[Rfam]
RNA sequence: UGGGCGGUAAGCAAGAGGGAUCCUGGGAAACAGGCUUCGACGGGUUGGGGGUGGUGCCCCGGCCGACGCAUCACUUGCUGAUACAACCA
Numbered sequence: 001u002g003g004g005c006g007g008u009a010a011g012c013a014a015g016a017g018g019g020a021u022c023c024u025g026g027g028a029a030a031c032a033g034g035c036u037u038c039g040a041c042g043g044g045u046u047g048g049g050g051g052u053g054g055u056g057c058c059c060c061g062g063c064c065g066a067c068g069c070a071u072c073a074c075u076u077g078c079u080g081a082u083a084c085a086a087c088c089a
Stems, first nucleotide, its partner, number of pairs: 001089003007082002010079006018067001022034004043064006

The family of this 89-nucleotide sequence from Alphanecrovirus tessellati is "Necrovirus cap-independent translation element". It is one of the family's seed sequences. By type it is a cis-regulatory element. The pairing is the family consensus, mapped onto this sequence. The source organism's lineage runs through Viruses, Riboviria, Kitrinoviricota, Tolucaviricetes and Alphanecrovirus tessellati.